[Rfam]
RNA sequence: GCCUCUGGUGCCUUCUGAGCUGACAGCAGUUCGAUCAAACACACUGGCUCAGUUCAGCAGGAACAAGAG
Numbered sequence: 001g002c003c004u005c006u007g008g009u010g011c012c013u014u015c016u017g018a019g020c021u022g023a024c025a026g027c028a029g030u031u032c033g034a035u036c037a038a039a040c041a042c043a044c045u046g047g048c049u050c051a052g053u054u055c056a057g058c059a060g061g062a063a064c065a066a067g068a069g
Stems, first nucleotide, its partner, number of pairs: 003069004008064002011061003015057009027046004
RNA: mir-24 microRNA precursor family